Annotation: Shown here is a 116-nucleotide RNA from Prodigiosinella confusarubida, a member of the family "Soft rot Enterobacteriaceae Fwd 6 3'UTR". The family's RNA type in Rfam is cis-regulatory element. A search with the family's covariance model found it, with a score of 90 bits. From the family's description: From bacteria cultured under starvation conditions. The source organism's lineage runs through Bacteria, Pseudomonadati, Pseudomonadota, Pectobacteriaceae and Prodigiosinella.
RNA sequence: UUUAUGUAAUUAAGCUACAGGAUAGUGUGAUCAAGUUUGGUUUUGUUUAAAUGGUAGUCACUUUUUAUGAAAUUAAACAACAAAAAAUCCUUUGUUCCAGUGAAAAAAUAGGGUAG
Numbered sequence: 001u002u003u004a005u006g007u008a009a010u011u012a013a014g015c016u017a018c019a020g021g022a023u024a025g026u027g028u029g030a031u032c033a034a035g036u037u038u039g040g041u042u043u044u045g046u047u048u049a050a051a052u053g054g055u056a057g058u059c060a061c062u063u064u065u066u067a068u069g070a071a072a073u074u075a076a077a078c079a080a081c082a083a084a085a086a087a088u089c090c091u092u093u094g095u096u097c098c099a100g101u102g103a104a105a106a107a108a109u110a111g112g113g114u115a116g
Base pairs, nucleotide, nucleotide: 005019006018007017035078036077037076038075039074042072043071044070048067049066053064054063079096080095081094082093083092084091097113098112
Dot-bracket structure: ....(((.........)))...............(((((..(((...((...((........)).))..))).)))))((((((......))))))((.............))...